Annotation: A member of the RNA family "c-di-AMP riboswitch aptamer (ydaO/yuaA leader)" from Gloeothece verrucosa, 155 nucleotides long.
RNA sequence: AUAGUCACUAAGCCAAAUGUGAUCAAAAGACUAUUAGAGCGGAGGAACCAAACAUUGGGGCGCAUUUCUGCUGUAUAAUUAGUUACAACAGCAGCAAGGGACAUCUCUCAGUCCUAGCCCGUCAGCUAACUUCGUAGGCAUUGAGGGAAGAUUGA
Dot-bracket structure: ...........(((...(.((((.........)))).)((((((....((.....))(((.....(.(((((((.............))))))).)..((((........))))...))).........)))))).)))................
The organism belongs to Gloeothece verrucosa, within Bacteria.